The family of this 69-nucleotide RNA sequence from Acidobacteriaceae bacterium TAA 166 is "nadA riboswitch". A reference for the family is Chen et al. (2020), "Structural distinctions between NAD+ riboswitch domains 1 and 2 determine differential folding and ligand binding", Nucleic Acids Res. The base pairs follow the family's consensus structure, which is taken from published work. NCBI's taxonomy places the organism under Bacteria, Pseudomonadati, Terriglobia, Terriglobales, Acidobacteriaceae.
RNA sequence: GGUUGCAACAUCCCCGUGGGUUGGGCGAGAGCCGUAGUGAAAGGCUGGAGCAGCGAAUCCACUGCAACC
Numbered sequence: 001g002g003u004u005g006c007a008a009c010a011u012c013c014c015c016g017u018g019g020g021u022u023g024g025g026c027g028a029g030a031g032c033c034g035u036a037g038u039g040a041a042a043g044g045c046u047g048g049a050g051c052a053g054c055g056a057a058u059c060c061a062c063u064g065c066a067a068c069c
Stems, first nucleotide, its partner, number of pairs: 001069007013055001014053001016062007023054001025051002030046003